[Rfam]
RNA: Group II catalytic intron D1-D4-4
RNA sequence: UUGCCGGUGGAAGUCCGGUCCGGGUAGCUGCCAGGAGGUCCGGUAGCAGGCUGGCGGCUUCGUCUGGUAAGGGGCGGGGUCGAAGCCCAGCGUCAAAAGCCCUGCGAGGGGGAGCGAUGGUGUGGUCCGUAGCAUGA
Numbered sequence: 001u002u003g004c005c006g007g008u009g010g011a012a013g014u015c016c017g018g019u020c021c022g023g024g025u026a027g028c029u030g031c032c033a034g035g036a037g038g039u040c041c042g043g044u045a046g047c048a049g050g051c052u053g054g055c056g057g058c059u060u061c062g063u064c065u066g067g068u069a070a071g072g073g074g075c076g077g078g079g080u081c082g083a084a085g086c087c088c089a090g091c092g093u094c095a096a097a098a099g100c101c102c103u104g105c106g107a108g109g110g111g112g113a114g115c116g117a118u119g120g121u122g123u124g125g126u127c128c129g130u131a132g133c134a135u136g137a
Stems, first nucleotide, its partner, number of pairs: 020043005050091005055082006064073002100112004114130003